[Rfam]
RNA: Small nucleolar RNA U61
RNA sequence: GUGUUGUGAGAAAAAUAUUUGUGUUGGAGACUUUUAGUCUUUGAUGACUUACACUACCCUCUAAAAAGUUCUGAGCAC
Number, nucleotide and partner (000 for none) at each position: 001g078002u077003g076004u075005u000006g000007u000008g000009a000010g000011a000012a000013a000014a000015a000016u000017a000018u000019u000020u000021g000022u000023g000024u000025u000026g000027g000028a000029g000030a000031c000032u000033u000034u000035u000036a000037g000038u000039c000040u000041u000042u000043g000044a000045u000046g000047a000048c000049u000050u000051a000052c000053a000054c000055u000056a000057c000058c000059c000060u000061c000062u000063a000064a000065a000066a000067a000068g000069u000070u000071c000072u000073g000074a000075g004076c003077a002078c001